This 106-nucleotide RNA from Roseibacillus persicicus belongs to the Rfam family "TPP riboswitch aptamer (THI element)". A search with the family's covariance model found it, with a score of 64 bits. Its family is annotated with thiamine pyrophosphate binding in the Gene Ontology.

[Rfam]
RNA sequence: GCCGAAAGACAGGGGAGCCGACGAGGCUGAGAAUGGGCACCGCCGCCCGUGACCCUUCGAACCUGAUACGGACAAAACCGGCGUAGGGAGUCACAGUCAGACAGAG
Numbered sequence: 001g002c003c004g005a006a007a008g009a010c011a012g013g014g015g016a017g018c019c020g021a022c023g024a025g026g027c028u029g030a031g032a033a034u035g036g037g038c039a040c041c042g043c044c045g046c047c048c049g050u051g052a053c054c055c056u057u058c059g060a061a062c063c064u065g066a067u068a069c070g071g072a073c074a075a076a077a078c079c080g081g082c083g084u085a086g087g088g089a090g091u092c093a094c095a096g097u098c099a100g101a102c103a104g105a106g
Stems, first nucleotide, its partner, number of pairs: 008092003011056004016050001017027003034049005062087004069080003